[Rfam]
RNA sequence: AGUGUCCUUCGGGGUUUGGGUGAAAGUCCCGACCGGCGGUGAUGAGGCUGUUAAAUUGUCUCUUAGUCCGUGACCCGGUUUUGUUAUUAAGCAAAAACGGUGGAUUCGGUGUAAGUCCGAAGCCGACAGUAUAGUCUGGAUGGGAGAAGGAACGU
Number, nucleotide and partner (000 for none) at each position: 001a000002g000003u000004g000005u151006c150007c149008u148009u147010c146011g000012g000013g000014g000015u000016u000017u000018g030019g029020g028021u000022g000023a000024a000025a000026g000027u000028c020029c019030c018031g000032a135033c134034c125035g124036g071037c070038g069039g068040u000041g000042a000043u000044g000045a000046g000047g000048c000049u000050g000051u000052u000053a000054a000055a000056u000057u000058g000059u000060c000061u000062c000063u000064u000065a000066g123067u122068c039069c038070g037071u036072g000073a000074c000075c100076c099077g000078g000079u000080u000081u000082u000083g000084u000085u000086a000087u000088u000089a000090a000091g000092c000093a000094a000095a000096a000097a000098c000099g076100g075101u000102g000103g000104a000105u121106u120107c119108g118109g117110u000111g000112u000113a000114a000115g000116u000117c109118c108119g107120a106121a105122g067123c066124c035125g034126a000127c138128a137129g136130u000131a000132u000133a000134g033135u032136c129137u128138g127139g000140a000141u000142g000143g000144g000145a000146g010147a009148a008149g007150g006151a005152a000153c000154g000155u000
A member of the RNA family "FMN riboswitch aptamer (RFN element)" from Fictibacillus arsenicus, 155 nucleotides long. The family's consensus secondary structure is taken from published work. Lineage of the source: Bacteria > Bacillati > Caryophanales > Fictibacillaceae > Fictibacillus.